[Rfam]
RNA sequence: AUGGAUCUUCGGGGUAUGGUGAAAUUCCUGACCGGCGGUGAUGGUUUCGUAUGCCAGUUGUUUCUGUCAUAAGAAGCCUAAGCCCGCGACUCGCUAUGGUUGUGCACUUUUGUGCAGGGAGAUUAGCGACUGAUUUGGUGAAAAUCCAAAGCCGACGGUUAAAGUCCGGAUGGGAGAAGAUCAAG
Numbered sequence: 001a002u003g004g005a006u007c008u009u010c011g012g013g014g015u016a017u018g019g020u021g022a023a024a025u026u027c028c029u030g031a032c033c034g035g036c037g038g039u040g041a042u043g044g045u046u047u048c049g050u051a052u053g054c055c056a057g058u059u060g061u062u063u064c065u066g067u068c069a070u071a072a073g074a075a076g077c078c079u080a081a082g083c084c085c086g087c088g089a090c091u092c093g094c095u096a097u098g099g100u101u102g103u104g105c106a107c108u109u110u111u112g113u114g115c116a117g118g119g120a121g122a123u124u125a126g127c128g129a130c131u132g133a134u135u136u137g138g139u140g141a142a143a144a145u146c147c148a149a150a151g152c153c154g155a156c157g158g159u160u161a162a163a164g165u166c167c168g169g170a171u172g173g174g175a176g177a178a179g180a181u182c183a184a185g
Stems, first nucleotide, its partner, number of pairs: 004182007018028002031165002033154002035087004091129006134150005156168003
RNA: FMN riboswitch aptamer (RFN element)